[Rfam]
RNA sequence: UAACGUCUUCAGGGCGGGGUGGAAUUCCCCACCGGCGGUAGGUUUCCGGCAGCAAACGUUGCCAGUUACAAGCCCGCGAGCGCUUUCGGGAAUCUUCCCGGAAGGUCAGCAGAUCCGGUCCGAUGCCGGAGCCGACGGUCCGGCUUUGCUGCCUGCAGCAGAGCCCAUAGUCCGGAUGAAAGAAGACAGAA
Numbered sequence: 001u002a003a004c005g006u007c008u009u010c011a012g013g014g015c016g017g018g019g020u021g022g023a024a025u026u027c028c029c030c031a032c033c034g035g036c037g038g039u040a041g042g043u044u045u046c047c048g049g050c051a052g053c054a055a056a057c058g059u060u061g062c063c064a065g066u067u068a069c070a071a072g073c074c075c076g077c078g079a080g081c082g083c084u085u086u087c088g089g090g091a092a093u094c095u096u097c098c099c100g101g102a103a104g105g106u107c108a109g110c111a112g113a114u115c116c117g118g119u120c121c122g123a124u125g126c127c128g129g130a131g132c133c134g135a136c137g138g139u140c141c142g143g144c145u146u147u148g149c150u151g152c153c154u155g156c157a158g159c160a161g162a163g164c165c166c167a168u169a170g171u172c173c174g175g176a177u178g179a180a181a182g183a184a185g186a187c188a189g190a191a
Base pairs, nucleotide, nucleotide: 005187006186007185008184009183010182017029018028019027033134034133035077036076037075038074072132073131080110081109114130115129116128117127118126136174137173138172
RNA: FMN riboswitch aptamer (RFN element)